Shown here is a 97-nucleotide RNA from Wohlfahrtiimonas chitiniclastica, a member of the family "Bacterial small signal recognition particle RNA". The match comes from Rfam's covariance-model search (61 bits). It is annotated as a non-coding RNA gene. The base pairs follow the family's consensus structure, which is taken from published work.

RNA sequence: CAUUGGUUUCCUCGCAGUGAAUUAUUACGCACCGUGUCAGGUCCGGAAGGAAGCAGCACACGUAUUAGGUUUGCGUGCAGAGGGUGAGCUGGUGUGG
Dot-bracket structure: ...((((((((((.(.((((((((.((((....((((....(((....)))....)))).)))).)).)))))))....)))))..)))))......